[Rfam]
RNA sequence: UGUGAUGGGGCUCAUGGUAGAAUCGUUCACGUUCGCGAUCCCUGUCACGUUUAAACAAACCUGCAAAUUUUAAC
Number, nucleotide and partner (000 for none) at each position: 001u000002g000003u000004g000005a000006u000007g000008g042009g041010g040011c000012u038013c037014a000015u000016g074017g000018u072019a071020g070021a069022a068023u000024c035025g034026u000027u000028c000029a000030c000031g000032u000033u000034c025035g024036c000037g013038a012039u000040c010041c009042c008043u000044g000045u000046c063047a062048c000049g060050u059051u058052u057053a000054a000055a000056c000057a052058a051059a050060c049061c000062u047063g046064c000065a000066a000067a000068u022069u021070u020071u019072a018073a000074c016
A member of the RNA family "Mammalian CPEB3 ribozyme" from Clupea harengus, 74 nucleotides long. The family's consensus secondary structure is taken from published work. The organism belongs to Clupea, within Eukaryota.